The family of this 79-nucleotide RNA sequence from Erpetoichthys calabaricus is "mir-144 microRNA precursor family". It scores 90 bits against the family's covariance model. The literature on the family includes a 2005 paper in Genes Dev by Chen et al., "The developmental miRNA profiles of zebrafish as determined by small RNA cloning". Rfam links the family to the GO terms miRNA-mediated post-transcriptional gene silencing and RISC complex. NCBI's taxonomy places the organism under Eukaryota, Eumetazoa, Craniata, Euteleostomi, Erpetoichthys. The base pairs follow the family's consensus structure, which was predicted with RNAalifold.
RNA sequence: AUUCUGGACAGGAUAUCAUCAUAUACUGUAAGUUCGCUACAUAGACACUACAGUAUAGAUGAUGUACUAUCCAGGGUUG
Numbered sequence: 001a002u003u004c005u006g007g008a009c010a011g012g013a014u015a016u017c018a019u020c021a022u023a024u025a026c027u028g029u030a031a032g033u034u035c036g037c038u039a040c041a042u043a044g045a046c047a048c049u050a051c052a053g054u055a056u057a058g059a060u061g062a063u064g065u066a067c068u069a070u071c072c073a074g075g076g077u078u079g
Stems, first nucleotide, its partner, number of pairs: 007071002010068002013065008022057009032046003